[Rfam]
RNA sequence: CUGAAGGAUUAUAUCGAAGAAUCAAAUGACGGGGUAACGCCCUGAAGGGUUCUCUCUUAGUCGAAUAGCACUGGAUUUAGUAAGAAUGAUCGUGUUAUAAGCUCGAUGAAAAGGCGUGAGUUCGGCUGACGAAAGCCUACUCGAUGGAGUGGUGUAAUUCAUGAUGCUUGAGUUGAAUGA
Numbered sequence: 001c002u003g004a005a006g007g008a009u010u011a012u013a014u015c016g017a018a019g020a021a022u023c024a025a026a027u028g029a030c031g032g033g034g035u036a037a038c039g040c041c042c043u044g045a046a047g048g049g050u051u052c053u054c055u056c057u058u059a060g061u062c063g064a065a066u067a068g069c070a071c072u073g074g075a076u077u078u079a080g081u082a083a084g085a086a087u088g089a090u091c092g093u094g095u096u097a098u099a100a101g102c103u104c105g106a107u108g109a110a111a112a113g114g115c116g117u118g119a120g121u122u123c124g125g126c127u128g129a130c131g132a133a134a135g136c137c138u139a140c141u142c143g144a145u146g147g148a149g150u151g152g153u154g155u156a157a158u159u160c161a162u163g164a165u166g167c168u169u170g171a172g173u174u175g176a177a178u179g180a
Base pairs, nucleotide, nucleotide: 018053019052020051021050022049023048031043032042033041034040054172055171056170061106062105063104064103065098066097067096068095069094070093071092074091075090076089077088113168114167115166116165117164125155126154127131135153136152137151139150140149141148142147
Rfam assigns this 180-nucleotide sequence to the family "Group II catalytic intron D1-D4-5". Rfam describes the family as follows. Group II introns are found in rRNA, tRNA and mRNA of organelles in fungi, plants and protists, and also in mRNA in bacteria. Rfam 15.1 lists 720 matches to the family in 418 species. The match comes from Rfam's covariance-model search (90 bits). For this family Rfam cites "Group II introns: structure and catalytic versatility of large natural ribozymes" (Lehmann and Schmidt, Crit Rev Biochem Mol Biol, 2003).